RNA sequence: GCUGAUAUGGCUCAGUUGGUAGAGCGCACCCUUGGUAGGGGUGGGGUCCCCAGUUCGACUCUGGGUAUCAGCA
Numbered sequence: 001g002c003u004g005a006u007a008u009g010g011c012u013c014a015g016u017u018g019g020u021a022g023a024g025c026g027c028a029c030c031c032u033u034g035g036u037a038g039g040g041g042u043g044g045g046g047u048c049c050c051c052a053g054u055u056c057g058a059c060u061c062u063g064g065g066u067a068u069c070a071g072c073a
Base pairs, nucleotide, nucleotide: 001072002071003070004069005068006067007066010025011024012023013022027043028042029041030040031039049065050064051063052062053061

tRNA: a 73-nucleotide RNA from Escherichia coli.
The source organism's lineage runs through Bacteria, Pseudomonadota, Gammaproteobacteria, Enterobacterales and Escherichia.
Pairs were carried over by alignment from the consensus structure, which is taken from published work.
Its family is annotated with triplet codon-amino acid adaptor activity in the Gene Ontology.